PreQ1 (pre queuosine) riboswitch aptamer: a 46-nucleotide RNA from Anaerobacillus alkaliphilus. The family has 43 seed sequences and 873 matches in Rfam 15.1. It scores 39 bits against the family's covariance model. The base pairs follow the family's consensus structure. A reference for the family is Kang et al. (2009), "Structural Insights into riboswitch control of the biosynthesis of queuosine, a modified nucleotide found in the anticodon of tRNA", Mol Cell.
[Rfam]
RNA sequence: UAAGAAGAGGUUCUAGCUCAAACCCUCUAUAAAAAACUAAGGUUGU
Dot-bracket structure: .....(((((.....[.......))))).........]........